[Rfam]
RNA sequence: AAUUGACGCUAGGGGUGUCUGUUAAUCAGGCUGAGAUCAAACCCUUAACACCUGACUCUGGGUAAUACCAGCGAAGGGAAGCUGUAUAUUGAGGAA
Number, nucleotide and partner (000 for none) at each position: 001a000002a000003u000004u000005g000006a000007c000008g082009c081010u080011a045012g044013g043014g042015g000016u039017g031018u030019c029020u028021g027022u000023u000024a000025a000026u000027c021028a020029g019030g018031c017032u000033g000034a000035g000036a000037u000038c000039a016040a000041a000042c014043c013044c012045u011046u000047a000048a000049c000050a000051c077052c076053u075054g000055a000056c000057u000058c071059u070060g069061g068062g000063u000064a000065a000066u000067a000068c061069c060070a059071g058072c000073g000074a000075a053076g052077g051078g000079a000080a010081g009082c008083u000084g000085u000086a000087u000088a000089u000090u000091g000092a000093g000094g000095a000096a000

This 96-nucleotide RNA from Richelia sinica belongs to the Rfam family "TPP riboswitch aptamer (THI element)". The base pairs follow the family's consensus structure, which is taken from published work. Gene Ontology term of the family: thiamine pyrophosphate binding. Lineage of the source: Bacteria > Cyanobacteriota > Nostocales > Nostocaceae > Richelia sinica.